[Rfam]
RNA sequence: ACUUAUACAGGGUAGCAUAAUGGGCUACUGAACCGCCCCGGGACCAAUCUCGGGACUAUAAGU
Numbered sequence: 001a002c003u004u005a006u007a008c009a010g011g012g013u014a015g016c017a018u019a020a021u022g023g024g025c026u027a028c029u030g031a032a033c034c035g036c037c038c039c040g041g042g043a044c045c046a047a048u049c050u051c052g053g054g055a056c057u058a059u060a061a062g063u
Stems, first nucleotide, its partner, number of pairs: 001063007008035001011029006022045002030036001037054007
Background
Shown here is a 63-nucleotide RNA sequence from Mesoplasma florum, a member of the family "2dG-I riboswitch aptamer (M. florum)". Rfam links the family to the GO terms deoxyribonucleoside binding and regulation of DNA-templated transcription, termination. The organism belongs to Mesoplasma florum, within Bacteria. The family's consensus secondary structure is taken from published work. Its Rfam clan is "Purine riboswitches". A reference for the family is Kim et al. (2007), "Guanine riboswitch variants from Mesoplasma florum selectively recognize 2'-deoxyguanosine", Proc Natl Acad Sci U S A.